[Rfam]
RNA sequence: GGGCGGGCCUUCUUGACGGGGUGAAGUGCUGUCUUUAGACUCAUGCACCCCAAAAUUCAGCAGAGCCAUGCUCUGCGAUUUUGUGUUCGUAGUAAGAAAAUAGCGUCGAAAGACAACAGUGGAGCUAGUAGA
Numbered sequence: 001g002g003g004c005g006g007g008c009c010u011u012c013u014u015g016a017c018g019g020g021g022u023g024a025a026g027u028g029c030u031g032u033c034u035u036u037a038g039a040c041u042c043a044u045g046c047a048c049c050c051c052a053a054a055a056u057u058c059a060g061c062a063g064a065g066c067c068a069u070g071c072u073c074u075g076c077g078a079u080u081u082u083g084u085g086u087u088c089g090u091a092g093u094a095a096g097a098a099a100a101u102a103g104c105g106u107c108g109a110a111a112g113a114c115a116a117c118a119g120u121g122g123a124g125c126u127a128g129u130a131g132a
Stems, first nucleotide, its partner, number of pairs: 004015004019050003023046001025044001028041001032037001060076007099129001101127004105114003
Pseudomonas rpsL leader: a 132-nucleotide RNA from Pseudomonas matsuisoli.
The match comes from Rfam's covariance-model search (72 bits).
For this family Rfam cites "Premature terminator analysis sheds light on a hidden world of bacterial transcriptional attenuation" (Naville and Gautheret, Genome Biol, 2010).
Its family is annotated with regulation of gene expression in the Gene Ontology.